This 127-nucleotide RNA sequence from Leptobrachium leishanense belongs to the Rfam family "Small nucleolar RNA SNORD22". Gene Ontology terms of the family: nucleolus and RNA processing. Rfam classes the family as a C/D-box small nucleolar RNA. Lineage of the source: Eukaryota > Chordata > Teleostomi > Tetrapoda > Leptobrachium. Rfam 15.1 lists 1,081 matches to the family in 414 species.

RNA sequence: CCCAAAUGAUGAUUACCUCAAAUGUCCGACCUACAUAUUGGCUUCAGAGCCUGAAAAGGUGAACCCACUGGGGCCAUAUGUAGGAAAAGAUGGAUGCACUGUUCCAGCUGGAACUGUCUGACUGGGC
Numbered sequence: 001c002c003c004a005a006a007u008g009a010u011g012a013u014u015a016c017c018u019c020a021a022a023u024g025u026c027c028g029a030c031c032u033a034c035a036u037a038u039u040g041g042c043u044u045c046a047g048a049g050c051c052u053g054a055a056a057a058g059g060u061g062a063a064c065c066c067a068c069u070g071g072g073g074c075c076a077u078a079u080g081u082a083g084g085a086a087a088a089g090a091u092g093g094a095u096g097c098a099c100u101g102u103u104c105c106a107g108c109u110g111g112a113a114c115u116g117u118c119u120g121a122c123u124g125g126g127c
Stems, first nucleotide, its partner, number of pairs: 001126004